The record is a 200-nucleotide RNA from Nothoprocta ornata, which matches "Small nucleolar RNA SNORA74" in Rfam.
RNA sequence: CCCAGUGGUAGUCAGCUGUCCAGAGCAGUACCAUGCCUGUGAUAGUGUUACAUGGCUGGGAGAUAAAGGUCAGUCAUUUCUUCUGGCUGCUGUCACCGUUCUGGAGACAGCUGAUGCCAGAAAGAAGUGCUAUUGUGCUUCCCUGAGAGCGUACUAAGGAAAUGCUUCAACUCUUUAGUGCUAGUCCGGAAGCAUACAUG
Numbered sequence: 001c002c003c004a005g006u007g008g009u010a011g012u013c014a015g016c017u018g019u020c021c022a023g024a025g026c027a028g029u030a031c032c033a034u035g036c037c038u039g040u041g042a043u044a045g046u047g048u049u050a051c052a053u054g055g056c057u058g059g060g061a062g063a064u065a066a067a068g069g070u071c072a073g074u075c076a077u078u079u080c081u082u083c084u085g086g087c088u089g090c091u092g093u094c095a096c097c098g099u100u101c102u103g104g105a106g107a108c109a110g111c112u113g114a115u116g117c118c119a120g121a122a123a124g125a126a127g128u129g130c131u132a133u134u135g136u137g138c139u140u141c142c143c144u145g146a147g148a149g150c151g152u153a154c155u156a157a158g159g160a161a162a163u164g165c166u167u168c169a170a171c172u173c174u175u176u177a178g179u180g181c182u183a184g185u186c187c188g189g190a191a192g193c194a195u196a197c198a199u200g
Stems, first nucleotide, its partner, number of pairs: 001060006008053002011051002015046006021039003068133001069131001071129002078126005083120005090113001092111001094106001096104002135195008151181003155177006
The literature on the family includes a 1997 paper in Genes Dev by Ganot et al., "The family of box ACA small nucleolar RNAs is defined by an evolutionarily conserved secondary structure and ubiquitous sequence elements essential for RNA accumulation". Taxonomically the source falls in Nothoprocta (Eukaryota, Sauropsida, Dinosauria, Theropoda). Clan: SNORA74 clan. Rfam links the family to the GO terms RNA processing and nucleolus. Pairs were carried over by alignment from the consensus structure, which was predicted with PFOLD. It is annotated as an H/ACA-box small nucleolar RNA.